[Rfam]
RNA sequence: UGGGUGGUAUCCAUAGGAACUACACCAAUGGAUGAAGUUUUUUUAUGUUCAAAUAUGUGAUUUCUGCCUUGAUCCAAACAUAGGGACUAGGACAGAGGG
Numbered sequence: 001u002g003g004g005u006g007g008u009a010u011c012c013a014u015a016g017g018a019a020c021u022a023c024a025c026c027a028a029u030g031g032a033u034g035a036a037g038u039u040u041u042u043u044u045a046u047g048u049u050c051a052a053a054u055a056u057g058u059g060a061u062u063u064c065u066g067c068c069u070u071g072a073u074c075c076a077a078a079c080a081u082a083g084g085g086a087c088u089a090g091g092a093c094a095g096a097g098g099g
Base pairs, nucleotide, nucleotide: 001027002026003025004023005022006021007020008019010018011017064095065094066093067091068090069089071087073086074085075084
This 99-nucleotide RNA sequence from Litchfieldia stipae belongs to the Rfam family "pan motif". A search with the family's covariance model found it, with a score of 66 bits. The base pairs follow the family's consensus structure, which is taken from published work. The organism belongs to Litchfieldia, within Bacteria. Rfam classes the family as a cis-regulatory element.